[Rfam]
The family of this 114-nucleotide RNA from Pseudoalteromonas sp. NC201 is "Ribosomal S15 leader". The literature on the family includes a 1996 paper in Biochimie by Benard et al., "Pseudoknot and translational control in the expression of the S15 ribosomal protein". Rfam classes the family as a cis-regulatory leader. The family is grouped with related families in Rfam's "Ribosomal Protein S15 Leader clan". Rfam describes the family as follows. The E. coli Ribosomal S15 gene 5' UTR can form two alternative structures.
RNA sequence: CGCUUUGGCUGAAUUAGUGAUCGGCUGAAGCAUUACUAAACUUAUUUUGGAGUUAUUAUGUCACUAAGCAAUCAAGAAAAAGCAGAAAUCGUAGCAAAGUUCGCACGCGCAGAA
Numbered sequence: 001c002g003c004u005u006u007g008g009c010u011g012a013a014u015u016a017g018u019g020a021u022c023g024g025c026u027g028a029a030g031c032a033u034u035a036c037u038a039a040a041c042u043u044a045u046u047u048u049g050g051a052g053u054u055a056u057u058a059u060g061u062c063a064c065u066a067a068g069c070a071a072u073c074a075a076g077a078a079a080a081a082g083c084a085g086a087a088a089u090c091g092u093a094g095c096a097a098a099g100u101u102c103g104c105a106c107g108c109g110c111a112g113a114a
Stems, first nucleotide, its partner, number of pairs: 007026006046068005052062001